[Rfam]
RNA sequence: CAUGAAACAUGUGACUGACGGAAAGUGGAGCAUACCACGGGGAGCAUGAUUCAGUAUAGCCGACCGUCUGGGCGAAGGUU
Numbered sequence: 001c002a003u004g005a006a007a008c009a010u011g012u013g014a015c016u017g018a019c020g021g022a023a024a025g026u027g028g029a030g031c032a033u034a035c036c037a038c039g040g041g042g043a044g045c046a047u048g049a050u051u052c053a054g055u056a057u058a059g060c061c062g063a064c065c066g067u068c069u070g071g072g073c074g075a076a077g078g079u080u
Stems, first nucleotide, its partner, number of pairs: 003053004008048005015041002017068005025038004057075001059073003
RNA: ZMP/ZTP riboswitch aptamer (pfl RNA motif)